[Rfam]
The record is an 85-nucleotide sequence from Amycolatopsis sp. M39, which matches "Fluoride riboswitch aptamer (crcB RNA motif)" in Rfam. A search with the family's covariance model found it, with a score of 42 bits. The source organism's lineage runs through Bacteria, Bacillati, Pseudonocardiales, Pseudonocardiaceae and Amycolatopsis.
RNA sequence: GCCGGACAAGGCGAUGGGGCUCGCCGGGGAAGCGACGCACGGUGCUUCUCGAACUGCCGCAGCGGCUGAUGGCUCCUCCUGAGUU
Dot-bracket structure: .........[[[[..((((((]]]]..............................(((.....)))....)))))).........